[Rfam]
mir-156 microRNA precursor family: a 121-nucleotide sequence from Centaurea solstitialis. The literature on the family includes a 2002 paper in Genes Dev by Reinhart et al., "MicroRNAs in plants". Rfam describes the family as follows. This family represents the plant microRNA (miRNA) precursor mir-156. NCBI's taxonomy places the organism under Eukaryota, Embryophyta, asterids, Centaureinae, Centaurea.

RNA sequence: GUGACAGAAGAGAGUGAGCACAGAUGGGCUUUUCUUGCAUUAUAUUAGAGAGAGGGAUGUAUAAGUAUAGAAGGAUGAUUUGUAUGCUUGAAGCUAUGUGUGCUCACUCUCUAUCCGUCAC
Numbered sequence: 001g002u003g004a005c006a007g008a009a010g011a012g013a014g015u016g017a018g019c020a021c022a023g024a025u026g027g028g029c030u031u032u033u034c035u036u037g038c039a040u041u042a043u044a045u046u047a048g049a050g051a052g053a054g055g056g057a058u059g060u061a062u063a064a065g066u067a068u069a070g071a072a073g074g075a076u077g078a079u080u081u082g083u084a085u086g087c088u089u090g091a092a093g094c095u096a097u098g099u100g101u102g103c104u105c106a107c108u109c110u111c112u113a114u115c116c117g118u119c120a121c
Base pairs, nucleotide, nucleotide: 001121002120003119004118005117007115008114010111011110012109013108014107015106016105017104018103019102020101021100024097025096026095027094